[Rfam]
RNA sequence: GGAGGUGUGUGUCAGUGAUGGCACGCUGAACAUUGAUCGCUCGGUAAAUGGUAGCAGAUCUGCUCAGUAAGUGCAGUCACGGCUUAGGUCGAUCCAGCAACCAAUUAGAUGCCGCCGACGCCUCGCCGCUCGGCCGGUAUCCGUGGUUUCUUGAACGUCCGCCAUUUCCAAAUUUUGGGGGGUUACGGAUGUGGGUUUAUUUCAUUUAAGACACCUCCAGAUAUCGGCACUGCAAGCCUUUACUGCAGUAUGCCAUUUUUUGUA
Numbered sequence: 001g002g003a004g005g006u007g008u009g010u011g012u013c014a015g016u017g018a019u020g021g022c023a024c025g026c027u028g029a030a031c032a033u034u035g036a037u038c039g040c041u042c043g044g045u046a047a048a049u050g051g052u053a054g055c056a057g058a059u060c061u062g063c064u065c066a067g068u069a070a071g072u073g074c075a076g077u078c079a080c081g082g083c084u085u086a087g088g089u090c091g092a093u094c095c096a097g098c099a100a101c102c103a104a105u106u107a108g109a110u111g112c113c114g115c116c117g118a119c120g121c122c123u124c125g126c127c128g129c130u131c132g133g134c135c136g137g138u139a140u141c142c143g144u145g146g147u148u149u150c151u152u153g154a155a156c157g158u159c160c161g162c163c164a165u166u167u168c169c170a171a172a173u174u175u176u177g178g179g180g181g182g183u184u185a186c187g188g189a190u191g192u193g194g195g196u197u198u199a200u201u202u203c204a205u206u207u208a209a210g211a212c213a214c215c216u217c218c219a220g221a222u223a224u225c226g227g228c229a230c231u232g233c234a235a236g237c238c239u240u241u242a243c244u245g246c247a248g249u250a251u252g253c254c255a256u257u258u259u260u261u262g263u264a
Stems, first nucleotide, its partner, number of pairs: 001218008015080005026067003031062002035060004039055003042050001226254003229249005
Rfam assigns this 264-nucleotide RNA from Acanthoscelides obtectus to the family "Arthropod 7SK RNA". By type it is a non-coding RNA gene. For this family Rfam cites "Arthropod 7SK RNA" (Gruber et al., Mol Biol Evol, 2008).